Z6 small nucleolar RNA: a 90-nucleotide sequence from Catagonus wagneri. The family's consensus secondary structure was predicted with PFOLD. Rfam 15.1 lists 212 matches to the family in 144 species. It is annotated as a C/D-box small nucleolar RNA. Lineage of the source: Eukaryota > Metazoa > Euteleostomi > Theria > Catagonus.

[Rfam]
RNA sequence: GCCAGGUAAGGGCAAUACCUUGGCCAGAGCUCUGGCCCAGGUUUGGGGGCUCAAGGAGCCAGGGAAGUCCCUACAACCUCAGCUCUUGGC
Numbered sequence: 001g002c003c004a005g006g007u008a009a010g011g012g013c014a015a016u017a018c019c020u021u022g023g024c025c026a027g028a029g030c031u032c033u034g035g036c037c038c039a040g041g042u043u044u045g046g047g048g049g050c051u052c053a054a055g056g057a058g059c060c061a062g063g064g065a066a067g068u069c070c071c072u073a074c075a076a077c078c079u080c081a082g083c084u085c086u087u088g089g090c
Stems, first nucleotide, its partner, number of pairs: 001090004
Dot-bracket structure: ((((..................................................................................))))
On this family, see Galardi et al., Mol Cell Biol 2002: "Purified box C/D snoRNPs are able to reproduce site-specific 2'-O-methylation of target RNA in vitro".